The family of this 74-nucleotide sequence from Acanthopleuribacter pedis is "tRNA". The source organism's lineage runs through Bacteria, Acidobacteriota, Holophagae, Acanthopleuribacteraceae and Acanthopleuribacter.

[Rfam]
RNA sequence: GGAUCUGUAGCAAAAUUGCGUAAUGCACUCGGUUUUUACCCGAGGGAUUGAAGGUUCGAGUCCUUCCAGGUCCA
Numbered sequence: 001g002g003a004u005c006u007g008u009a010g011c012a013a014a015a016u017u018g019c020g021u022a023a024u025g026c027a028c029u030c031g032g033u034u035u036u037u038a039c040c041c042g043a044g045g046g047a048u049u050g051a052a053g054g055u056u057c058g059a060g061u062c063c064u065u066c067c068a069g070g071u072c073c074a
Stems, first nucleotide, its partner, number of pairs: 001073007010026003028044005050066005